[Rfam]
RNA sequence: AGAAAACGAAGGUUCUUCUCCUCCUCCCUAGAACCUUCGCCCACGGUCCGCUCUCUCCUCCUCCCUGAGCUGGACCGUAACAAAAGCGGCAGCACCUCUCCUCCUCCCUGGUGCUGCCGCAUUGA
Numbered sequence: 001a002g003a004a005a006a007c008g009a010a011g012g013u014u015c016u017u018c019u020c021c022u023c024c025u026c027c028c029u030a031g032a033a034c035c036u037u038c039g040c041c042c043a044c045g046g047u048c049c050g051c052u053c054u055c056u057c058c059u060c061c062u063c064c065c066u067g068a069g070c071u072g073g074a075c076c077g078u079a080a081c082a083a084a085a086g087c088g089g090c091a092g093c094a095c096c097u098c099u100c101c102u103c104c105u106c107c108c109u110g111g112u113g114c115u116g117c118c119g120c121a122u123u124g125a
Base pairs, nucleotide, nucleotide: 007039008038009037010036011035012034013033014032015031016030044077045076046075047074048073049072050070051069052068053067086120087119088118089117090116091115092114093113094112095111096110
The family of this 125-nucleotide RNA from Marivivens niveibacter is "Alphaproteobacterial ar14". The base pairs follow the family's consensus structure. Its family is annotated with biological process involved in symbiotic interaction in the Gene Ontology. Rfam describes the family as follows. Smr14C2 was renamed NfeR1 (Nodule Formation Efficiency RNA) highly expressed in salt stress and during the symbiotic interaction on legume roots. NCBI's taxonomy places the organism under Bacteria, Pseudomonadati, Pseudomonadota, Alphaproteobacteria, Marivivens.